[Rfam]
RNA sequence: AAUAACAUCGCCGGCACCACGGGUGCGGCCGCCCUGCUGCACCUGUGCCGUUGGGGCAGAGAGGAAGCGGCUAUUUCUACGCUCAGUGCUCAGAACCGUGGGCACUAAGAAUGGUUUGUAGCCGGACAUCA
Numbered sequence: 001a002a003u004a005a006c007a008u009c010g011c012c013g014g015c016a017c018c019a020c021g022g023g024u025g026c027g028g029c030c031g032c033c034c035u036g037c038u039g040c041a042c043c044u045g046u047g048c049c050g051u052u053g054g055g056g057c058a059g060a061g062a063g064g065a066a067g068c069g070g071c072u073a074u075u076u077c078u079a080c081g082c083u084c085a086g087u088g089c090u091c092a093g094a095a096c097c098g099u100g101g102g103c104a105c106u107a108a109g110a111a112u113g114g115u116u117u118g119u120a121g122c123c124g125g126a127c128a129u130c131a
Base pairs, nucleotide, nucleotide: 003053004052005051019046020045021044022043069123070122071121077114078113079112082109083108087104088103089102090101091100092099
RNA: Small nucleolar RNA SNORA43
Organism: Cervus hanglu